[Rfam]
RNA sequence: UAUUGCAAACAAUAAAUACUUCGUAUAUCCCCGGCAAUUGGGCCGGGAGUAUCUACCCGGGCACCUUAAUGACUGGACUACGAAGGCCGUCUUUAUAGAA
Numbered sequence: 001u002a003u004u005g006c007a008a009a010c011a012a013u014a015a016a017u018a019c020u021u022c023g024u025a026u027a028u029c030c031c032c033g034g035c036a037a038u039u040g041g042g043c044c045g046g047g048a049g050u051a052u053c054u055a056c057c058c059g060g061g062c063a064c065c066u067u068a069a070u071g072a073c074u075g076g077a078c079u080a081c082g083a084a085g086g087c088c089g090u091c092u093u094u095a096u097a098g099a100a
Stems, first nucleotide, its partner, number of pairs: 019085007030047006057076004062071002